[Rfam]
RNA: Small nucleolar RNA SNORA61
Organism: Oryctolagus cuniculus
RNA sequence: GCCCUCCAGUUCCUACUCCCAUGAUAGCAGAACUCUGCUCCUGGUAGUUGUACCAGGAGGAAAAAUGAUACUGGAGCUGCCCUCAUGGUGUUGUAGUCUGAUGUAUAGCAUUGAGCCAGUUGCAACAAGGU
Numbered sequence: 001g002c003c004c005u006c007c008a009g010u011u012c013c014u015a016c017u018c019c020c021a022u023g024a025u026a027g028c029a030g031a032a033c034u035c036u037g038c039u040c041c042u043g044g045u046a047g048u049u050g051u052a053c054c055a056g057g058a059g060g061a062a063a064a065a066u067g068a069u070a071c072u073g074g075a076g077c078u079g080c081c082c083u084c085a086u087g088g089u090g091u092u093g094u095a096g097u098c099u100g101a102u103g104u105a106u107a108g109c110a111u112u113g114a115g116c117c118a119g120u121u122g123c124a125a126c127a128a129g130g131u
Base pairs, nucleotide, nucleotide: 003060004059005058006057007056019047021045022044026039027038028037077119078118079117081115083113092110093109094108